[Rfam]
RNA sequence: GCCCUUUCGCCGAGCGCGGGAAGCGCCUAUAUUCCGCUUGCCGGUCGCAAGACCGGCUAUGGCGAUAAACGGUCGAUGUAAUAAACCAUUCGGACCCGGGGGCGGUACCCGGCGCCUCCACCCGAAGACCUGCUGGACGGGUCCUGGGGCGGGGGCGAAACAGGAUCGACGAGGGUGUAAAGAUCGAACUUUCGCUCGGCAUGGUACCGCCGUUAUCGGGCUAAAUCUAUAGUUGCCAACGACAACUAUGCGGAAGCCCGUCUCGCUGCUUAAUGCAGCGCGAUAGCUUCAAUCAAAGCCCUGCGGGUUCGCACUCGUAGGCGGGGUCCGGAGGCACCUGGCAACAGAAGCCUCCACU
Numbered sequence: 001g002c003c004c005u006u007u008c009g010c011c012g013a014g015c016g017c018g019g020g021a022a023g024c025g026c027c028u029a030u031a032u033u034c035c036g037c038u039u040g041c042c043g044g045u046c047g048c049a050a051g052a053c054c055g056g057c058u059a060u061g062g063c064g065a066u067a068a069a070c071g072g073u074c075g076a077u078g079u080a081a082u083a084a085a086c087c088a089u090u091c092g093g094a095c096c097c098g099g100g101g102g103c104g105g106u107a108c109c110c111g112g113c114g115c116c117u118c119c120a121c122c123c124g125a126a127g128a129c130c131u132g133c134u135g136g137a138c139g140g141g142u143c144c145u146g147g148g149g150c151g152g153g154g155g156c157g158a159a160a161c162a163g164g165a166u167c168g169a170c171g172a173g174g175g176u177g178u179a180a181a182g183a184u185c186g187a188a189c190u191u192u193c194g195c196u197c198g199g200c201a202u203g204g205u206a207c208c209g210c211c212g213u214u215a216u217c218g219g220g221c222u223a224a225a226u227c228u229a230u231a232g233u234u235g236c237c238a239a240c241g242a243c244a245a246c247u248a249u250g251c252g253g254a255a256g257c258c259c260g261u262c263u264c265g266c267u268g269c270u271u272a273a274u275g276c277a278g279c280g281c282g283a284u285a286g287c288u289u290c291a292a293u294c295a296a297a298g299c300c301c302u303g304c305g306g307g308u309u310c311g312c313a314c315u316c317g318u319a320g321g322c323g324g325g326g327u328c329c330g331g332a333g334g335c336a337c338c339u340g341g342c343a344a345c346a347g348a349a350g351c352c353u354c355c356a357c358u
Stems, first nucleotide, its partner, number of pairs: 040057007061196005071189001073187005086175002090172003096112005113157007197212004202223003207219002324339004330355006

Rfam assigns this 358-nucleotide RNA sequence from Aureimonas endophytica to the family "Alphaproteobacteria transfer-messenger RNA". It is annotated as a non-coding RNA gene. For this family Rfam cites "Phylogenetic analysis of tmRNA secondary structure" (Williams and Bartel, RNA, 1996).